[Rfam]
RNA sequence: GGGAGAUGAUGAGUGGUAAAAGCUCGCUAAUUUCACUGCGAGAGGGGUGCCUGCCCCAAAUAAGCCUGUUACGACAACAGGGCACUCACUAGCUUUACCAUCUGAUCCC
Number, nucleotide and partner (000 for none) at each position: 001g109002g108003g107004a106005g000006a000007u000008g000009a000010u000011g000012a000013g000014u100015g099016g098017u097018a096019a000020a000021a000022g000023c042024u041025c040026g039027c038028u000029a000030a000031u000032u000033u000034c000035a000036c000037u000038g027039c026040g025041a024042g023043a000044g000045g087046g086047g085048u084049g083050c082051c081052u000053g000054c000055c000056c000057c000058a000059a000060a000061u000062a000063a000064g000065c000066c080067u079068g078069u077070u000071a000072c000073g000074a000075c000076a000077a069078c068079a067080g066081g051082g050083c049084a048085c047086u046087c045088a000089c000090u000091a000092g000093c000094u000095u000096u018097a017098c016099c015100a014101u000102c000103u000104g000105a000106u004107c003108c002109c001
The record is a 109-nucleotide sequence from Digitaria exilis, which matches "Small nucleolar RNA Z279/snoR105/snoR108" in Rfam. The literature on the family includes a 2002 paper in Curr Biol by Marker et al., "Experimental RNomics: identification of 140 candidates for small non-messenger RNAs in the plant Arabidopsis thaliana". It scores 106 bits against the family's covariance model. The family's RNA type in Rfam is C/D-box small nucleolar RNA. This family includes the plant snoRNAs known as Z279, snoR105 and snoR108. The family is grouped with related families in Rfam's "snoU13 clan". Pairs were carried over by alignment from the consensus structure, which was predicted with PFOLD.